The family of this 277-nucleotide RNA sequence from Nocardioides sp. AX2bis is "raiA RNA". The source organism's lineage runs through Bacteria, Actinomycetes, Propionibacteriales, Nocardioidaceae and Nocardioides.
RNA sequence: UCCGCCCGGGUCCGUGGUUGCGCCGACGUCGCGCCCACCAGGGCGCCGGAACGGCAAGCCGAUGCCAGUCGCAGGCGAAACGGUCCACGUAAGUCCCGCCGGGGCAUGCCCCGACCGGGACGAUCACGGUGCGGCUUAGAGGUAAGUCCUGCCCCGUGCCACCGGUCAGACACCGGUGUCCGCGGGAGACGGCCAGUAGUGGCGCCAGAGAUGGCAGACGAGCUGCGAACGCUGCCGCAGGCGGUUGUGGGGUCGAAGACCAGGUCGGCCGGGCGGG
Numbered sequence: 001u002c003c004g005c006c007c008g009g010g011u012c013c014g015u016g017g018u019u020g021c022g023c024c025g026a027c028g029u030c031g032c033g034c035c036c037a038c039c040a041g042g043g044c045g046c047c048g049g050a051a052c053g054g055c056a057a058g059c060c061g062a063u064g065c066c067a068g069u070c071g072c073a074g075g076c077g078a079a080a081c082g083g084u085c086c087a088c089g090u091a092a093g094u095c096c097c098g099c100c101g102g103g104g105c106a107u108g109c110c111c112c113g114a115c116c117g118g119g120a121c122g123a124u125c126a127c128g129g130u131g132c133g134g135c136u137u138a139g140a141g142g143u144a145a146g147u148c149c150u151g152c153c154c155c156g157u158g159c160c161a162c163c164g165g166u167c168a169g170a171c172a173c174c175g176g177u178g179u180c181c182g183c184g185g186g187a188g189a190c191g192g193c194c195a196g197u198a199g200u201g202g203c204g205c206c207a208g209a210g211a212u213g214g215c216a217g218a219c220g221a222g223c224u225g226c227g228a229a230c231g232c233u234g235c236c237g238c239a240g241g242c243g244g245u246u247g248u249g250g251g252g253u254c255g256a257a258g259a260c261c262a263g264g265u266c267g268g269c270c271g272g273g274c275g276g277g
Stems, first nucleotide, its partner, number of pairs: 001277009012268003015262005062248003065075001067136007084129002089124001094119003098115001127255001148241005153186005190234004199226002205214003

The base pairs follow the family's consensus structure, which is taken from published work.